[Rfam]
RNA sequence: UCCCUGCCCUGCCUGUUUUCUCCUUUGUGAUUUUAUGAGAACAAAGGAGGAAAUAGGCAGGCCAGGGA
Numbered sequence: 001u002c003c004c005u006g007c008c009c010u011g012c013c014u015g016u017u018u019u020c021u022c023c024u025u026u027g028u029g030a031u032u033u034u035a036u037g038a039g040a041a042c043a044a045a046g047g048a049g050g051a052a053a054u055a056g057g058c059a060g061g062c063c064a065g066g067g068a
Stems, first nucleotide, its partner, number of pairs: 001068006008061021031038002
The record is a 68-nucleotide RNA sequence from Homo sapiens, which matches "mir-3173 microRNA precursor family" in Rfam.
Lineage of the source: Eukaryota > Deuterostomia > Teleostomi > Euarchontoglires > Homo.
The family's consensus secondary structure was predicted with RNAalifold.
It is one of the family's seed sequences.